[Rfam]
RNA: TPP riboswitch aptamer (THI element)
RNA sequence: GAAUAGUUUACCGGGAGCCUGCGGAAGCAGGCUGAGAGUGCGUCUAUUCCGUCGCAGACCGUUUGAACCUGUUGGAUAAUGCCAGCGUAGGGAAAAGUGCUGAGGAAAUU
Numbered sequence: 001g002a003a004u005a006g007u008u009u010a011c012c013g014g015g016a017g018c019c020u021g022c023g024g025a026a027g028c029a030g031g032c033u034g035a036g037a038g039u040g041c042g043u044c045u046a047u048u049c050c051g052u053c054g055c056a057g058a059c060c061g062u063u064u065g066a067a068c069c070u071g072u073u074g075g076a077u078a079a080u081g082c083c084a085g086c087g088u089a090g091g092g093a094a095a096a097g098u099g100c101u102g103a104g105g106a107a108a109u110u
Stems, first nucleotide, its partner, number of pairs: 006098004012061003017032005039056004068091004072085004